Annotation
Shown here is a 74-nucleotide RNA from Romanomermis culicivorax, a member of the family "mir-153 microRNA precursor family". On this family, see Chen et al., Genes Dev 2005: "The developmental miRNA profiles of zebrafish as determined by small RNA cloning". Taxonomically the source falls in Romanomermis (Eukaryota, Eumetazoa, Protostomia, Mermithoidea). A search with the family's covariance model found it, with a score of 60 bits.
[Rfam]
RNA sequence: AAUUCCAUCAUUUUUGUGAAAUGCAGUUCUGAAUAUAUGGAGUGCAGUUGCAUAGUCACAAAAGUGAUGGAAGC
Numbered sequence: 001a002a003u004u005c006c007a008u009c010a011u012u013u014u015u016g017u018g019a020a021a022u023g024c025a026g027u028u029c030u031g032a033a034u035a036u037a038u039g040g041a042g043u044g045c046a047g048u049u050g051c052a053u054a055g056u057c058a059c060a061a062a063a064g065u066g067a068u069g070g071a072a073g074c
Base pairs, nucleotide, nucleotide: 003072004071005070006069008067009066010065011064012063013062014061015060016059017058018057019056022052023051024050025049026048027047028046
Its family is annotated with RISC complex and miRNA-mediated post-transcriptional gene silencing in the Gene Ontology.